[Rfam]
Rfam assigns this 60-nucleotide RNA sequence from Prochlorothrix hollandica to the family "Nitrogen stress-induced RNA 1".
RNA sequence: UGGUAGAUGCACCCUGAUUUCAACUCCCUGACCUGCUGGCGUGGGUCGGGGAUUUUUUUU
Numbered sequence: 001u002g003g004u005a006g007a008u009g010c011a012c013c014c015u016g017a018u019u020u021c022a023a024c025u026c027c028c029u030g031a032c033c034u035g036c037u038g039g040c041g042u043g044g045g046u047c048g049g050g051g052a053u054u055u056u057u058u059u060u
Stems, first nucleotide, its partner, number of pairs: 002013003025052011
About this RNA
The base pairs follow the family's consensus structure. The match comes from Rfam's covariance-model search (66 bits). The organism belongs to Prochlorothrix hollandica, within Bacteria. The family's RNA type in Rfam is small RNA.